[Rfam]
RNA sequence: UGACUGCGAUGAUGCGGAAGGUUGCCGACACACCCGGCCGCUUUGCCAUGGCGAGUGUGGGGAAAUUUCCGCGGAGAAUGUCUAUUUAGAAAGAUAGGCGA
Numbered sequence: 001u002g003a004c005u006g007c008g009a010u011g012a013u014g015c016g017g018a019a020g021g022u023u024g025c026c027g028a029c030a031c032a033c034c035c036g037g038c039c040g041c042u043u044u045g046c047c048a049u050g051g052c053g054a055g056u057g058u059g060g061g062g063a064a065a066u067u068u069c070c071g072c073g074g075a076g077a078a079u080g081u082c083u084a085u086u087u088a089g090a091a092a093g094a095u096a097g098g099c100g101a
Base pairs, nucleotide, nucleotide: 014072015071016070019068020067021066025061026060028058029057030056031055079100080099081098082097083096084095085094086093